[Rfam]
RNA sequence: UACAAAUAAAUACAUAAUGCUCGUAUAUAUUUGAGGAUAUGGCUCAAAAGUUUCUACCAGGCGACCGUAAAUCGCCCGACUACGGGUGAAAGUGUGCCUAGG
Numbered sequence: 001u002a003c004a005a006a007u008a009a010a011u012a013c014a015u016a017a018u019g020c021u022c023g024u025a026u027a028u029a030u031u032u033g034a035g036g037a038u039a040u041g042g043c044u045c046a047a048a049a050g051u052u053u054c055u056a057c058c059a060g061g062c063g064a065c066c067g068u069a070a071a072u073c074g075c076c077c078g079a080c081u082a083c084g085g086g087u088g089a090a091a092g093u094g095u096g097c098c099u100a101g102g
Stems, first nucleotide, its partner, number of pairs: 018088008030048006058078001060076005